[Rfam]
RNA sequence: GAAACGUAGGGAGUAGUAUAUAGGGAUUACGCCUUGAUGGAGGAGAUUCCGGUUCGAAUCCGGGCUACUACGUUACAUCUUAGCCCCUUAAUUGGGGCUUUUUUUGUU
Numbered sequence: 001g002a003a004a005c006g007u008a009g010g011g012a013g014u015a016g017u018a019u020a021u022a023g024g025g026a027u028u029a030c031g032c033c034u035u036g037a038u039g040g041a042g043g044a045g046a047u048u049c050c051g052g053u054u055c056g057a058a059u060c061c062g063g064g065c066u067a068c069u070a071c072g073u074u075a076c077a078u079c080u081u082a083g084c085c086c087c088u089u090a091a092u093u094g095g096g097g098c099u100u101u102u103u104u105u106g107u108u
Stems, first nucleotide, its partner, number of pairs: 003074007012066002032043004048064005082099006

Rfam assigns this 108-nucleotide RNA from Streptococcus mitis to the family "Streptococcus sRNA SpF41". The base pairs follow the family's consensus structure, which was predicted with mfold. NCBI's taxonomy places the organism under Bacteria, Bacillota, Streptococcaceae, Streptococcus, Streptococcus mitis. The sequence is in the family's curated seed alignment. The literature on the family includes a 2012 paper in PLoS Pathog by Mann et al., "Control of virulence by small RNAs in Streptococcus pneumoniae".